[Rfam]
RNA sequence: GUAUUGUGGGGACCACCUCUUCGAGAGGUGUUGGGCAUUAGCCAGCUGUGACGAUUGACACGUAGAUCUAGACCCCUUCGUGCAAACAUCAAGCCGUUCGUCAGAGCAAGCCACGCCGUCUUUUUUA
Numbered sequence: 001g002u003a004u005u006g007u008g009g010g011g012a013c014c015a016c017c018u019c020u021u022c023g024a025g026a027g028g029u030g031u032u033g034g035g036c037a038u039u040a041g042c043c044a045g046c047u048g049u050g051a052c053g054a055u056u057g058a059c060a061c062g063u064a065g066a067u068c069u070a071g072a073c074c075c076c077u078u079c080g081u082g083c084a085a086a087c088a089u090c091a092a093g094c095c096g097u098u099c100g101u102c103a104g105a106g107c108a109a110g111c112c113a114c115g116c117c118g119u120c121u122u123u124u125u126u127a
Stems, first nucleotide, its partner, number of pairs: 006119004010112002014030007034043003045107002049103006056096001059082002063080001064078002
Shown here is a 127-nucleotide RNA from Paraburkholderia acidisoli, a member of the family "Burkholderia sRNA 39". For this family Rfam cites "Differential expression of small RNAs from Burkholderia thailandensis in response to varying environmental and stress conditions" (Stubben et al., BMC Genomics, 2014). Trans-encoded, exhibits differential expression profiles dependent on growth phase and cell stimuli, such as antbiotics and serum. May function in bacterial metabolism and adaptation to the host. Shown to be expressed in biotin. The match comes from Rfam's covariance-model search (106 bits).